RNA sequence: UGCCAAUGCUCGCCUUGCUUGUCGGGCACCUGCCCCAAAUCGAUUUGGAGUUUUAUUGCAAUGGCAAUGACCGCUGAACAAAAAGCCGCGAUCGUCAAAGAUUUCCAGCACAAGGAA
Numbered sequence: 001u002g003c004c005a006a007u008g009c010u011c012g013c014c015u016u017g018c019u020u021g022u023c024g025g026g027c028a029c030c031u032g033c034c035c036c037a038a039a040u041c042g043a044u045u046u047g048g049a050g051u052u053u054u055a056u057u058g059c060a061a062u063g064g065c066a067a068u069g070a071c072c073g074c075u076g077a078a079c080a081a082a083a084a085g086c087c088g089c090g091a092u093c094g095u096c097a098a099a100g101a102u103u104u105c106c107a108g109c110a111c112a113a114g115g116a117a
Stems, first nucleotide, its partner, number of pairs: 007028006047071001050068003
RNA: Ribosomal S15 leader